[Rfam]
RNA sequence: GCAGCGGCAACGCCGAGUCCGCCAUCGCGCGGAGCCGGGGACCCACCACGCACUGGGGUGAAUCGGCCUGCCCCGCAGGCCGUAGGGCGACUUCCACGUCCGAACCCGUCAGCUAACCCGGUAGGCGGCAUGGAAGCCAAGG
Numbered sequence: 001g002c003a004g005c006g007g008c009a010a011c012g013c014c015g016a017g018u019c020c021g022c023c024a025u026c027g028c029g030c031g032g033a034g035c036c037g038g039g040g041a042c043c044c045a046c047c048a049c050g051c052a053c054u055g056g057g058g059u060g061a062a063u064c065g066g067c068c069u070g071c072c073c074c075g076c077a078g079g080c081c082g083u084a085g086g087g088c089g090a091c092u093u094c095c096a097c098g099u100c101c102g103a104a105c106c107c108g109u110c111a112g113c114u115a116a117c118c119c120g121g122u123a124g125g126c127g128g129c130a131u132g133g134a135a136g137c138c139a140a141g142g
Stems, first nucleotide, its partner, number of pairs: 011127004018033005034122006044055002056107003064082004085101004
Rfam assigns this 142-nucleotide sequence from Actinomadura madurae to the family "c-di-AMP riboswitch aptamer (ydaO/yuaA leader)". From the family's description: This family represents a conserved RNA structure found upstream of the ydaO and yuaA genes in Bacillus subtilis and related genes in other bacteria. A search with the family's covariance model found it, with a score of 78 bits.